A member of the RNA family "Metazoan signal recognition particle RNA" from Sitophilus oryzae, 296 nucleotides long.
NCBI's taxonomy places the organism under Eukaryota, Opisthokonta, Arthropoda, Altocrustacea, Sitophilus.
Rfam classes the family as a non-coding RNA gene.
RNA sequence: ACUGGGAGCGUGGCGUCUCCUGUAAUCCAGCUGCUUGGAGGUCGGGUUCGGCGGAUGGUUUGAGGUCGGGAGUCCUGGUGCAAGGCGUCUCGCGUCGACCGGGCGUCCACACUAAGCACGGCGUCGAUAUGGACACCUGGGGGGAGCCCUAGGUGGCCAGGUCGGCCAAGGAGGGGCGCAACGGGCCAGGGGGGUAACCCAGCAGCCAAAAGUCCCCGCGUCGUGCAGUAGUGGGAUCGCGCCUGGGAGCGGGAACCUUGUGUCAGCCCGACCAAUAUAGCUAGACCCGGAUCCUU
Number, nucleotide and partner (000 for none) at each position: 001a042002c041003u040004g021005g020006g019007a018008g017009c000010g000011u000012g000013g000014c000015g000016u000017c008018u007019c006020c005021u004022g000023u000024a000025a000026u039027c038028c037029a000030g000031c000032u000033g000034c000035u000036u000037g028038g027039a026040g003041g002042u001043c000044g294045g293046g292047u291048u290049c289050g288051g287052c000053g000054g000055a000056u283057g282058g281059u280060u279061u000062g000063a000064g273065g272066u271067c270068g269069g268070g267071a000072g000073u000074c000075c266076u265077g264078g263079u262080g261081c260082a259083a258084g257085g256086c000087g000088u000089c253090u252091c251092g250093c249094g000095u247096c000097g000098a000099c246100c245101g244102g243103g242104c241105g240106u239107c235108c234109a000110c233111a232112c231113u230114a229115a000116g226117c225118a224119c223120g222121g221122c220123g219124u218125c164126g163127a162128u161129a000130u159131g158132g157133a000134c155135a154136c153137c152138u151139g150140g149141g148142g147143g000144g000145a000146g000147c142148c141149c140150u139151a138152g137153g136154u135155g134156g000157c132158c131159a130160g000161g128162u127163c126164g125165g000166c170167c000168a000169a000170g166171g000172a000173g216174g215175g214176g213177c212178g000179c000180a000181a000182c000183g000184g207185g206186c205187c000188a000189g000190g000191g200192g199193g198194g000195u000196a000197a000198c193199c192200c191201a000202g000203c000204a000205g186206c185207c184208a000209a000210a000211a000212g177213u176214c175215c174216c173217c000218g124219c123220g122221u121222c120223g119224u118225g117226c116227a000228g000229u114230a113231g112232u111233g110234g108235g107236a000237u000238c000239g106240c105241g104242c103243c102244u101245g100246g099247g095248a000249g093250c092251g091252g090253g089254a000255a000256c085257c084258u083259u082260g081261u080262g079263u078264c077265a076266g075267c070268c069269c068270g067271a066272c065273c064274a000275a000276u000277a000278u000279a060280g059281c058282u057283a056284g000285a000286c000287c051288c050289g049290g048291a047292u046293c045294c044295u000296u000
The family has 91 seed sequences and 383,523 matches in Rfam 15.1. The family's consensus secondary structure is taken from published work. Its Rfam clan is "SRP clan". Rfam describes the family as follows. The signal recognition particle (SRP) is a universally conserved ribonucleoprotein. It is involved in the co-translational targeting of proteins to membranes. The eukaryotic SRP consists of a 300-nucleotide 7S RNA and six proteins: SRPs 72, 68, 54, 19, 14, and 9. Archaeal SRP consists of a 7S RNA and homologues of the eukaryotic SRP19 and SRP54 proteins.